[Rfam]
RNA sequence: UUUGUGGAAUCACAGACUAAGAACGCCGCAUCUGUUGCAACAUCUGUGUGACCUACAUCCUGUGGG
Numbered sequence: 001u002u003u004g005u006g007g008a009a010u011c012a013c014a015g016a017c018u019a020a021g022a023a024c025g026c027c028g029c030a031u032c033u034g035u036u037g038c039a040a041c042a043u044c045u046g047u048g049u050g051a052c053c054u055a056c057a058u059c060c061u062g063u064g065g066g
Stems, first nucleotide, its partner, number of pairs: 011048006025038002028035002052066005
Notes
The family of this 66-nucleotide RNA from Niallia endozanthoxylica is "Bacillaceae-1 RNA". Rfam 15.1 lists 5,721 matches to the family in 247 species. The match comes from Rfam's covariance-model search (50 bits). Lineage of the source: Bacteria > Bacillati > Bacilli > Caryophanales > Niallia.